[Rfam]
RNA sequence: CCUGCCGAAGUUUCCCUCAGGAUAGCAGAAGCUCGUUACAAACAGUUUUAUGAGGUAAAGCGAAUGAUUAGAGGUCUCGGGGCGGAAAUAGCCUUAGCCUAUUCUCAAACUUUAAAUAUGUAAGAAGUCCUUGUUGCUUAAUUGAACGUGGACAUAUGAAUGUAGAGCUUUUAGUGGGCCAUUUUUGGUAAGCAGAACUGGCGAUGCGGGAUGAACCGAACGUGAAGUUAAAGUGCCAGAAUGCACGCUCAUCAGACACCACAAAAGGUGUUAGUUCAUCUAGACAGCCGGACGGUGGCCAUGGAAGUCGGAAUCCGCUAAGGAGUGUGUAACAACUCACCGGCCGAAUGAACUAGCCCUGAAAAUGGAUGGCGCUCAAGCGUGCUACUUAUACUUCGCCGACAAACCUUCAGGGUUUGUCGAGUAGGCAGGCGUGGAGGUGGUGACGAAGCCUUGGCUGUGAAGCUGGGUCGAACCGCCUCUAGUGCAGAU
Dot-bracket structure: ((((((....(.(((....))).)..(((((((............(((((((.....(((....(((..(.(((..(.((((.........)))).)))).)..)))..)).).....))))))).((((.((((.........)))).))))............))))))).....((((.(((((.....))))).))))....(((......)))...(((((.(...(((......(.(..(((.................(((.((((((((((.......(((((.(((...((.........))...)))(...)(...((......)).).)))))...)))))))))))))...................)))..)))))...).)))))(((((((((.....)))))))))....))))))(.((((((((((......((....(((....)))...))...))))))))))..).....
Numbered sequence: 001c002c003u004g005c006c007g008a009a010g011u012u013u014c015c016c017u018c019a020g021g022a023u024a025g026c027a028g029a030a031g032c033u034c035g036u037u038a039c040a041a042a043c044a045g046u047u048u049u050a051u052g053a054g055g056u057a058a059a060g061c062g063a064a065u066g067a068u069u070a071g072a073g074g075u076c077u078c079g080g081g082g083c084g085g086a087a088a089u090a091g092c093c094u095u096a097g098c099c100u101a102u103u104c105u106c107a108a109a110c111u112u113u114a115a116a117u118a119u120g121u122a123a124g125a126a127g128u129c130c131u132u133g134u135u136g137c138u139u140a141a142u143u144g145a146a147c148g149u150g151g152a153c154a155u156a157u158g159a160a161u162g163u164a165g166a167g168c169u170u171u172u173a174g175u176g177g178g179c180c181a182u183u184u185u186u187g188g189u190a191a192g193c194a195g196a197a198c199u200g201g202c203g204a205u206g207c208g209g210g211a212u213g214a215a216c217c218g219a220a221c222g223u224g225a226a227g228u229u230a231a232a233g234u235g236c237c238a239g240a241a242u243g244c245a246c247g248c249u250c251a252u253c254a255g256a257c258a259c260c261a262c263a264a265a266a267g268g269u270g271u272u273a274g275u276u277c278a279u280c281u282a283g284a285c286a287g288c289c290g291g292a293c294g295g296u297g298g299c300c301a302u303g304g305a306a307g308u309c310g311g312a313a314u315c316c317g318c319u320a321a322g323g324a325g326u327g328u329g330u331a332a333c334a335a336c337u338c339a340c341c342g343g344c345c346g347a348a349u350g351a352a353c354u355a356g357c358c359c360u361g362a363a364a365a366u367g368g369a370u371g372g373c374g375c376u377c378a379a380g381c382g383u384g385c386u387a388c389u390u391a392u393a394c395u396u397c398g399c400c401g402a403c404a405a406a407c408c409u410u411c412a413g414g415g416u417u418u419g420u421c422g423a424g425u426a427g428g429c430a431g432g433c434g435u436g437g438a439g440g441u442g443g444u445g446a447c448g449a450a451g452c453c454u455u456g457g458c459u460g461u462g463a464a465g466c467u468g469g470g471u472c473g474a475a476c477c478g479c480c481u482c483u484a485g486u487g488c489a490g491a492u
Stems, first nucleotide, its partner, number of pairs: 001432006011024001013022003027172007046125007058113001059111002065107003070102001072100003077097001079095004127153004132148004178202004183197005207218003222399005228393001232389003241386001243385001246382003266360003270357010287344005293317003299311002318322001323338001327336002400422009433487001435484010451471002457466003